RNA sequence: UGCUUUCUAUCUUUGGAGUCAUGAAAAACAGAAUAACAAAUACCUGGUGGUGGAAUAAUUUACGUCAAACGUCGUGAAGUAACACUGCUAUAGUAUAAAAUCAUACAAAGGCUUGUC
Number, nucleotide and partner (000 for none) at each position: 001u000002g000003c000004u000005u000006u000007c000008u000009a000010u000011c000012u000013u000014u000015g000016g000017a000018g000019u000020c000021a000022u000023g000024a000025a000026a000027a000028a000029c000030a000031g000032a000033a000034u000035a000036a101037c000038a000039a000040a096041u095042a094043c000044c000045u090046g089047g088048u000049g086050g085051u084052g083053g000054a000055a000056u081057a080058a000059u078060u077061u076062a072063c071064g070065u000066c000067a000068a000069a000070c064071g063072u062073c000074g000075u000076g061077a060078a059079g000080u057081a056082a000083c052084a051085c050086u049087g000088c047089u046090a045091u000092a000093g000094u042095a041096u040097a000098a000099a000100a000101u036102c000103a000104u000105a000106c000107a000108a000109a000110g000111g000112c000113u000114u000115g000116u000117c000
Shown here is a 117-nucleotide RNA from Salegentibacter flavus, a member of the family "Bacteroidete tryptophan peptide leader RNA". Pairs were carried over by alignment from the consensus structure, which is taken from published work. The family's RNA type in Rfam is cis-regulatory leader.